[Rfam]
RNA sequence: CUGGCCGUGCACGGGAGCCCCGCCGGGGCUGAGAGGGCGAGAUCCGCCGACCGUCGAACCUGAUCCGGGUCAUGCCGGCGAAGGGAGCACCCAUGAACAGUGC
Numbered sequence: 001c002u003g004g005c006c007g008u009g010c011a012c013g014g015g016a017g018c019c020c021c022g023c024c025g026g027g028g029c030u031g032a033g034a035g036g037g038c039g040a041g042a043u044c045c046g047c048c049g050a051c052c053g054u055c056g057a058a059c060c061u062g063a064u065c066c067g068g069g070u071c072a073u074g075c076c077g078g079c080g081a082a083g084g085g086a087g088c089a090c091c092c093a094u095g096a097a098c099a100g101u102g103c
Base pairs, nucleotide, nucleotide: 007090008089009088010087011054012053013052014051017029018028019027020026021025036048037047038046039045059084060083061082065078066077067076068075
TPP riboswitch aptamer (THI element): a 103-nucleotide sequence from Cellulomonas sp. PhB143. It scores 64 bits against the family's covariance model. Lineage of the source: Bacteria > Actinomycetes > Micrococcales > Cellulomonadaceae > Cellulomonas. Gene Ontology term of the family: thiamine pyrophosphate binding.